[Rfam]
RNA: permuted transfer-messenger RNA
Organism: Aurantiacibacter marinus
RNA sequence: GGCGAUAAAAUGCGGUGUGCACUAGGCACAGCGGACCCGGGGGCAGUACCCGGCGGCUCCACCACAAACACUGGGAAACCAGUGGUUUCUGACGGGGCCGAACUAGGAUCGACGUGUGUUGAAAGGCACUGUUUUCGCCCGGGCUGAGAUCCCCCGUUAAACGCUCACAACACACAAGUGCCAAUGAUAAUGAAGCACUCGCGAUUGCUGCGUAA
Numbered sequence: 001g002g003c004g005a006u007a008a009a010a011u012g013c014g015g016u017g018u019g020c021a022c023u024a025g026g027c028a029c030a031g032c033g034g035a036c037c038c039g040g041g042g043g044c045a046g047u048a049c050c051c052g053g054c055g056g057c058u059c060c061a062c063c064a065c066a067a068a069c070a071c072u073g074g075g076a077a078a079c080c081a082g083u084g085g086u087u088u089c090u091g092a093c094g095g096g097g098c099c100g101a102a103c104u105a106g107g108a109u110c111g112a113c114g115u116g117u118g119u120u121g122a123a124a125g126g127c128a129c130u131g132u133u134u135u136c137g138c139c140c141g142g143g144c145u146g147a148g149a150u151c152c153c154c155c156g157u158u159a160a161a162c163g164c165u166c167a168c169a170a171c172a173c174a175c176a177a178g179u180g181c182c183a184a185u186g187a188u189a190a191u192g193a194a195g196c197a198c199u200c201g202c203g204a205u206u207g208c209u210g211c212g213u214a215a
Stems, first nucleotide, its partner, number of pairs: 001139005015129004027118003031115003037053005054100007140156004
Dot-bracket structure: (((((.........((((........(((.(((...(((((.......)))))(((((((.................................)))))))............)))))).......)))).....)))))((((.........))))...........................................................